The family of this 145-nucleotide RNA sequence from Nocardioides bruguierae is "c-di-AMP riboswitch aptamer (ydaO/yuaA leader)". A search with the family's covariance model found it, with a score of 57 bits. NCBI's taxonomy places the organism under Bacteria, Bacillati, Actinomycetes, Nocardioidaceae, Nocardioides. This family represents a conserved RNA structure found upstream of the ydaO and yuaA genes in Bacillus subtilis and related genes in other bacteria.
RNA sequence: GGCCGAGCACCACCAGGGCAGGAGUGGGGGACCCACCUAUCGCGGUCCCGACGAACCGGGCUACCGCUCGGGGUGAAGCCGUGCGUGCACGGCCGGGCACCUUUCCGCCCGAACCCGACAGCUCACCUCACAGGCGUGGAAGGGA
Numbered sequence: 001g002g003c004c005g006a007g008c009a010c011c012a013c014c015a016g017g018g019c020a021g022g023a024g025u026g027g028g029g030g031a032c033c034c035a036c037c038u039a040u041c042g043c044g045g046u047c048c049c050g051a052c053g054a055a056c057c058g059g060g061c062u063a064c065c066g067c068u069c070g071g072g073g074u075g076a077a078g079c080c081g082u083g084c085g086u087g088c089a090c091g092g093c094c095g096g097g098c099a100c101c102u103u104u105c106c107g108c109c110c111g112a113a114c115c116c117g118a119c120a121g122c123u124c125a126c127c128u129c130a131c132a133g134g135c136g137u138g139g140a141a142g143g144g145a
Stems, first nucleotide, its partner, number of pairs: 002135003010021001024131006034070001071116003079092004095110004